[Rfam]
RNA sequence: GGAUGUGAGGGCAAUUUGGCUGCAACCUCUGUCACCCCACUGAUGGCCAGUGUUGACUGGGCUGAUCUGGCUGGCUGGGUGGGUGUCCCCUUCCUCCCUCCCCAUUCCACGUGUGUCCCUCCUGAAGCUGCAUGCUGCUCAAAGAUGACAAACCUUCCCUGACAGAGCUGUACCAGCCAUAGGUCAAAGGGUAUACAGUAGCUGCGCUCGCCCACUAGAACCUGCAAACAAUCUCAAGGUCCAUUUGUAGGCGAAGGUAGGGCAGUGAAGCUUCCGAGACUGCAGACACAUCCAAGUGAGGCAGUGCAUGGGGUAGGAUGUUUGUUGGU
Dot-bracket structure: (((.(.(((((..(...((.....((.((((((.(((((..(((.(((...........)))..))))))..))...)))))).))..)).)...))))).)...)))........(.((((..(.((.....)))).(((.....((.......))..)))..)))..)..............................(((...((..((.((......(..(..((((.............)))).)..)...)).))..))...)))......................(....((((..(((.....)))....)))).....)

This 329-nucleotide RNA sequence from Patagioenas fasciata belongs to the Rfam family "7SK RNA".
By type it is a non-coding RNA gene.
For this family Rfam cites "Transcription: surprising role for an elusive small nuclear RNA" (Blencowe, Curr Biol, 2002).
NCBI's taxonomy places the organism under Eukaryota, Tetrapoda, Amniota, Columbimorphae, Patagioenas fasciata.